This 77-nucleotide sequence from Alligator mississippiensis belongs to the Rfam family "Mammalian CPEB3 ribozyme".
The mammalian CPEB3 ribozyme is a self cleaving RNA located in the second intron of the CPEB3 gene which belongs to a family of genes regulating messenger RNA polyadenylation.
Pairs were carried over by alignment from the consensus structure, which is taken from published work.

RNA sequence: AGUUGCAAGUUUAAGGCCAUAACAGAGGUGCUCACAGUAUGGCCAUGUUGGAUUCUAAUGAACCCAUGCAUUCUGCU
Numbered sequence: 001a002g003u004u005g006c007a008a009g010u011u012u013a014a015g016g017c018c019a020u021a022a023c024a025g026a027g028g029u030g031c032u033c034a035c036a037g038u039a040u041g042g043c044c045a046u047g048u049u050g051g052a053u054u055c056u057a058a059u060g061a062a063c064c065c066a067u068g069c070a071u072u073c074u075g076c077u
Stems, first nucleotide, its partner, number of pairs: 015044004021077001023075005028040003049066003053062003